Rfam assigns this 350-nucleotide RNA from Thermodesulfovibrio yellowstonii to the family "transfer-messenger RNA". Lineage of the source: Bacteria > Pseudomonadati > Nitrospirota > Thermodesulfovibrio > Thermodesulfovibrio yellowstonii. Bacterial tmRNA, also known as 10Sa RNA or SsrA, is named for its dual tRNA and mRNA-like properties. Pairs were carried over by alignment from the consensus structure, which is taken from published work. The sequence is in the family's curated seed alignment.
[Rfam]
RNA sequence: GGGGGCGAAAGGACUCGACGGAGGUAGUGAGGGCUAAGCUGCAUGCCGUGGUUCCUGCCACCACGUAAAACAGGUAGGGAAAACACAACUGCCAACAACGAAUUGGCACUCGCUGCUUAAUUAAAAGCAGCCGUCUUCCCAAGUUCUGCUCUGAGGCUUGGGCAAGGCGUCAUAAAUCAGAGCUAUCCUAAGGCACAAACCCGAUGCCUUAGGGAGAGCUAAGGGUUGUAGGAGCUUAGAGAGCCUGUGGAAGGGCGAGCUAACUUCCGAAUCCUAAAACUUCCACUAAGCAUGUAGAUGCUUAGAAGUAGCACCUUCGGACGCGGGUUCGAUUCCCGCCGCCUCCACCA
Numbered sequence: 001g002g003g004g005g006c007g008a009a010a011g012g013a014c015u016c017g018a019c020g021g022a023g024g025u026a027g028u029g030a031g032g033g034c035u036a037a038g039c040u041g042c043a044u045g046c047c048g049u050g051g052u053u054c055c056u057g058c059c060a061c062c063a064c065g066u067a068a069a070a071c072a073g074g075u076a077g078g079g080a081a082a083a084c085a086c087a088a089c090u091g092c093c094a095a096c097a098a099c100g101a102a103u104u105g106g107c108a109c110u111c112g113c114u115g116c117u118u119a120a121u122u123a124a125a126a127g128c129a130g131c132c133g134u135c136u137u138c139c140c141a142a143g144u145u146c147u148g149c150u151c152u153g154a155g156g157c158u159u160g161g162g163c164a165a166g167g168c169g170u171c172a173u174a175a176a177u178c179a180g181a182g183c184u185a186u187c188c189u190a191a192g193g194c195a196c197a198a199a200c201c202c203g204a205u206g207c208c209u210u211a212g213g214g215a216g217a218g219c220u221a222a223g224g225g226u227u228g229u230a231g232g233a234g235c236u237u238a239g240a241g242a243g244c245c246u247g248u249g250g251a252a253g254g255g256c257g258a259g260c261u262a263a264c265u266u267c268c269g270a271a272u273c274c275u276a277a278a279a280c281u282u283c284c285a286c287u288a289a290g291c292a293u294g295u296a297g298a299u300g301c302u303u304a305g306a307a308g309u310a311g312c313a314c315c316u317u318c319g320g321a322c323g324c325g326g327g328u329u330c331g332a333u334u335c336c337c338g339c340c341g342c343c344u345c346c347a348c349c350a
Stems, first nucleotide, its partner, number of pairs: 001346007019319007030309001034305006042294005047065005053079007112131007132169006139162002142159002145156001148183007186214005198227005229270001231268004236263002243256003247286003252281002323339005